[Rfam]
RNA sequence: UGGAGCAUUCAAAAGAAAAAAUGACACAAAUUUUAAACAAUACUUGGUGGUGGAGUAACUUACGUCGAACGUCGUGAGGCACACUGCUAUUGUAUCGUUUUAAUACCAUACGUAAAAGGCUUGUC
Numbered sequence: 001u002g003g004a005g006c007a008u009u010c011a012a013a014a015g016a017a018a019a020a021a022u023g024a025c026a027c028a029a030a031u032u033u034u035a036a037a038c039a040a041u042a043c044u045u046g047g048u049g050g051u052g053g054a055g056u057a058a059c060u061u062a063c064g065u066c067g068a069a070c071g072u073c074g075u076g077a078g079g080c081a082c083a084c085u086g087c088u089a090u091u092g093u094a095u096c097g098u099u100u101u102a103a104u105a106c107c108a109u110a111c112g113u114a115a116a117a118g119g120c121u122u123g124u125c
Stems, first nucleotide, its partner, number of pairs: 036099003040095004046088002049085004059078003062072003
The record is a 125-nucleotide RNA from Imtechella halotolerans, which matches "Bacteroidete tryptophan peptide leader RNA" in Rfam. Rfam links the family to the GO terms S-adenosylmethionine metabolic process and regulation of gene expression. The match comes from Rfam's covariance-model search (69 bits). It is annotated as a cis-regulatory leader. Taxonomically the source falls in Imtechella halotolerans (Bacteria, Bacteroidota, Flavobacteriaceae, Imtechella).